[Rfam]
RNA sequence: CGCACUCUGGAAAGCAGGUCCCCGGGGCCUCGCCGAAGGUGAAAGCCCGACACGCGCGGGCGAAGCUCUCAGGCACCGAUGACAGAGCGGGAGGA
Numbered sequence: 001c002g003c004a005c006u007c008u009g010g011a012a013a014g015c016a017g018g019u020c021c022c023c024g025g026g027g028c029c030u031c032g033c034c035g036a037a038g039g040u041g042a043a044a045g046c047c048c049g050a051c052a053c054g055c056g057c058g059g060g061c062g063a064a065g066c067u068c069u070c071a072g073g074c075a076c077c078g079a080u081g082a083c084a085g086a087g088c089g090g091g092a093g094g095a
Stems, first nucleotide, its partner, number of pairs: 003089001005087005016030004032074003035070002039068001041066001045061005
Glycine riboswitch aptamer: a 95-nucleotide RNA from Bailinhaonella thermotolerans. Taxonomically the source falls in Bailinhaonella (Bacteria, Bacillati, Actinomycetota, Streptosporangiaceae).